[Rfam]
RNA: mir-2765 microRNA precursor family
RNA sequence: AGUGCAGUGAGGAGUGGUAACUCCACCACCGUUGGCGUGAAUAAGACUGCCAGCGGUUGAGGAGUUCCUCGGCCUCGCAGCGAG
Numbered sequence: 001a002g003u004g005c006a007g008u009g010a011g012g013a014g015u016g017g018u019a020a021c022u023c024c025a026c027c028a029c030c031g032u033u034g035g036c037g038u039g040a041a042u043a044a045g046a047c048u049g050c051c052a053g054c055g056g057u058u059g060a061g062g063a064g065u066u067c068c069u070c071g072g073c074c075u076c077g078c079a080g081c082g083a084g
Base pairs, nucleotide, nucleotide: 003082004081005080007078008077009076010075011074012073016069017068019066020065021064022063023062026059029056030055031054032053033052034051035050036049037048